[Rfam]
A member of the RNA family "Burkholderia sRNA 7" from Paraburkholderia sp. BL10I2N1, 152 nucleotides long. By type it is a small RNA. A search with the family's covariance model found it, with a score of 134 bits. Pairs were carried over by alignment from the consensus structure, which was predicted with R-scape. Rfam describes the family as follows. Did not show any change in expression in iron-depletion and hydrogen peroxide (oxidative stress) treatment. For this family Rfam cites "Identification of novel small RNAs in Burkholderia cenocepacia KC-01 expressed under iron limitation and oxidative stress conditions" (Ghosh et al., Microbiology, 2017).
RNA sequence: GUAUUCUUUCGCGCAUGAACCGCAUCCAGUCCGAACUCCGACGUCGCCGCUCGCCGCUCCCUUAGGGGUGCCGCUGGCUUCGUCGCGGAUUCGCGCCAGACAGGGCGCAAGCUGUUCGAAUCAUGAAAGCCACGGACCUCCGUGGCUUUUUG
Numbered sequence: 001g002u003a004u005u006c007u008u009u010c011g012c013g014c015a016u017g018a019a020c021c022g023c024a025u026c027c028a029g030u031c032c033g034a035a036c037u038c039c040g041a042c043g044u045c046g047c048c049g050c051u052c053g054c055c056g057c058u059c060c061c062u063u064a065g066g067g068g069u070g071c072c073g074c075u076g077g078c079u080u081c082g083u084c085g086c087g088g089a090u091u092c093g094c095g096c097c098a099g100a101c102a103g104g105g106c107g108c109a110a111g112c113u114g115u116u117c118g119a120a121u122c123a124u125g126a127a128a129g130c131c132a133c134g135g136a137c138c139u140c141c142g143u144g145g146c147u148u149u150u151u152g
Stems, first nucleotide, its partner, number of pairs: 007119002011096004031088003039082003043078003046074002049071002054066001126149010